[Rfam]
Nucleotides: 254
Stems, first nucleotide, its partner, number of pairs: 007024001010021001012019002030041003053202004063109006073100010110149002116143002123137001153233001155232005205219006239252005
Number, partner (000 for none) and nucleotide at each position: 001000a002000u003000a004000a005000c006000u007024g008000u009000a010021u011000a012019c013018u014000a015000c016000g017000u018013a019012g020000g021010g022000c023000u024007c025000c026000u027000u028000a029000a030041a031040a032039c033000a034000g035000u036000a037000a038000u039032g040031u041030u042000u043000u044000a045000g046000a047000g048000g049000c050000a051000a052000a053202u054201g055200g056199g057000g058000a059000a060000a061000a062000u063109u064108a065107c066106a067105a068104g069000a070000a071000c072000a073100u074099u075098u076097a077096a078095u079094a080093a081092a082091c083000a084000a085000c086000c087000u088000c089000c090000g091082g092081u093080u094079u095078a096077u097076u098075a099074g100073a101000u102000u103000a104068u105067u106066u107065g108064u109063a110149g111148c112000g113000g114000a115000a116143u117142u118000u119000a120000a121000u122000u123137c124000g125000g126000u127000a128000u129000a130000a131000u132000u133000a134000a135000a136000a137123g138000a139000a140000u141000u142117a143116a144000a145000a146000g147000c148111g149110u150000u151000c152000a153233a154000c155232g156231a157230c158229u159228a160000a161000c162000g163000a164000g165000u166000g167000a168000g169000u170000a171000a172000u173000a174000c175000c176000a177000a178000c179000a180000a181000u182000a183000a184000g185000c186000u187000c188000g189000a190000c191000a192000c193000g194000a195000u196000a197000c198000c199056c200055c201054c202053a203000a204000a205219a206218c207217c208216u209215a210214a211000u212000c213000u214210u215209u216208a217207g218206g219205u220000u221000u222000a223000a224000g225000a226000u227000a228159u229158a230157g231156u232155c233153u234000a235000a236000a237000u238000a239252c240251u241250u242249u243248g244000u245000u246000a247000a248243c249242a250241a251240a252239g253000u254000a
The family of this 254-nucleotide RNA from Colletotrichum karsti is "Group I catalytic intron". Group I catalytic introns are large self-splicing ribozymes.